[Rfam]
RNA sequence: AUCGGUUCUCGGCUCUCUGGGCUAAGAUCAUGUGUAGUAUCUGUUCUUUGCAGUGUAAUUUCUGCAACGGUCCCCAAUUUAGGACCAAUGAAACGACCUGUAUUUUCCAGCCAGGACGGGGUGUUGUGAGCUUGCUCAAUCUUGUCCACGGGAUGGCCUCGUAUUGCAUUACCUCGAGGAUAGGCCCACUAAUG
Numbered sequence: 001a002u003c004g005g006u007u008c009u010c011g012g013c014u015c016u017c018u019g020g021g022c023u024a025a026g027a028u029c030a031u032g033u034g035u036a037g038u039a040u041c042u043g044u045u046c047u048u049u050g051c052a053g054u055g056u057a058a059u060u061u062c063u064g065c066a067a068c069g070g071u072c073c074c075c076a077a078u079u080u081a082g083g084a085c086c087a088a089u090g091a092a093a094c095g096a097c098c099u100g101u102a103u104u105u106u107c108c109a110g111c112c113a114g115g116a117c118g119g120g121g122u123g124u125u126g127u128g129a130g131c132u133u134g135c136u137c138a139a140u141c142u143u144g145u146c147c148a149c150g151g152g153a154u155g156g157c158c159u160c161g162u163a164u165u166g167c168a169u170u171a172c173c174u175c176g177a178g179g180a181u182a183g184g185c186c187c188a189c190u191a192a193u194g
Stems, first nucleotide, its partner, number of pairs: 007027003011023004048067006069086005076080001114147008127138004150187003154183001157179005
Dot-bracket structure: ......(((.((((.....)))).)))....................((((((........)))))).(((((..(...).)))))...........................((((((((.....((((....)))).))))))))..(((.(..(((((.............)))))...).))).......
This 194-nucleotide RNA from Echinococcus granulosus belongs to the Rfam family "U2 spliceosomal RNA". It is annotated as a spliceosomal small nuclear RNA. It scores 124 bits against the family's covariance model. Its family is annotated with mRNA branch site recognition, U2 snRNP and pre-mRNA branch point binding in the Gene Ontology. A reference for the family is Zwieb (1997), "The uRNA database", Nucleic Acids Res. Rfam's curators write: U2 is a small nuclear RNA (snRNA) component of the spliceosome (involved in pre-mRNA splicing). Complementary binding between U2 snRNA (in an area lying towards the 5' end but 3' to hairpin I) and the branchpoint sequence (BPS) of the intron results the bulging out of an unpaired adenosine, on the BPS, which initiates a nucleophilic attack at the intronic 5' splice site, thus starting the first of two transesterification reactions that mediate splicing. Pairs were carried over by alignment from the consensus structure, which is taken from published work. Clan: U2 clan.